Record summary
Shown here is a 71-nucleotide RNA sequence from Beta vulgaris, a member of the family "tRNA". The organism belongs to Beta vulgaris, within Eukaryota. Rfam classes the family as a transfer RNA.
RNA sequence: GCGGAUAUAGUCGAAUGUUAAAAUUUCUCUUUGUCAAGGAGAAGACGCGUGUUCGAUUUUCGCUAUCCGCU
Numbered sequence: 001g002c003g004g005a006u007a008u009a010g011u012c013g014a015a016u017g018u019u020a021a022a023a024u025u026u027c028u029c030u031u032u033g034u035c036a037a038g039g040a041g042a043a044g045a046c047g048c049g050u051g052u053u054c055g056a057u058u059u060u061c062g063c064u065a066u067c068c069g070c071u
Stems, first nucleotide, its partner, number of pairs: 001070007010024002026042005047063003051059001
Dot-bracket structure: (((((((..((...........)).(((((.......)))))....(((.(.......).)))))))))).